[Rfam]
RNA: DABA-DC-AT RNA
Organism: Vibrio tapetis
RNA sequence: GCAAUCUUGAAUCGAUUUGAUAAAAUCUGUUCUUGGGAAACGCACAGUGCCAAGCUGAUUGUGACACUGUGUAGGGUAGGUAUUAAGCCACACUCCGGCUUAAUAGAUGGGAUGAACAACGCCGUGAACGGUGUUAUGACGGGAAGCCCAACA
Number, nucleotide and partner (000 for none) at each position: 001g000002c000003a000004a000005u000006c035007u000008u000009g032010a031011a030012u000013c000014g000015a000016u000017u000018u000019g000020a000021u000022a000023a000024a000025a000026u000027c000028u000029g000030u011031u010032c009033u000034u000035g006036g000037g000038a000039a000040a000041c000042g072043c071044a070045c069046a068047g067048u066049g065050c000051c061052a060053a000054g000055c000056u000057g000058a000059u000060u052061g051062u000063g000064a000065c049066a048067c047068u046069g045070u044071g043072u042073a000074g000075g000076g000077u000078a000079g000080g000081u105082a104083u103084u102085a101086a100087g099088c098089c097090a000091c000092a000093c000094u000095c000096c000097g089098g088099c087100u086101u085102a084103a083104u082105a081106g000107a000108u000109g000110g000111g000112a000113u000114g000115a000116a000117c000118a000119a134120c133121g132122c131123c130124g129125u000126g000127a000128a000129c124130g123131g122132u121133g120134u119135u000136a000137u000138g000139a000140c000141g000142g000143g000144a000145a000146g000147c000148c000149c000150a000151a000152c000153a000